[Rfam]
RNA sequence: AUCAGAUCAUGUAACUGACGGAAGUGGGGGUACCCACAGGGAGCAUGAUCGCAGUGAGCCGACCGUCUGGGCGAAAAGG
Numbered sequence: 001a002u003c004a005g006a007u008c009a010u011g012u013a014a015c016u017g018a019c020g021g022a023a024g025u026g027g028g029g030g031u032a033c034c035c036a037c038a039g040g041g042a043g044c045a046u047g048a049u050c051g052c053a054g055u056g057a058g059c060c061g062a063c064c065g066u067c068u069g070g071g072c073g074a075a076a077a078g079g
Stems, first nucleotide, its partner, number of pairs: 005050008015040002017067005024037004058072003